msiK RNA: a 57-nucleotide RNA sequence from Lapillicoccus jejuensis. Rfam 15.1 lists 1,374 matches to the family in 1,364 species.

[Rfam]
RNA sequence: GGUUCCCGCCUUUACAACGGAUCGUCCGGCACGUUCCUGCCGGUGAAGGAGAUGGCU
Numbered sequence: 001g002g003u004u005c006c007c008g009c010c011u012u013u014a015c016a017a018c019g020g021a022u023c024g025u026c027c028g029g030c031a032c033g034u035u036c037c038u039g040c041c042g043g044u045g046a047a048g049g050a051g052a053u054g055g056c057u
Stems, first nucleotide, its partner, number of pairs: 009049006026043006
By type it is a cis-regulatory element. The family's consensus secondary structure is taken from published work.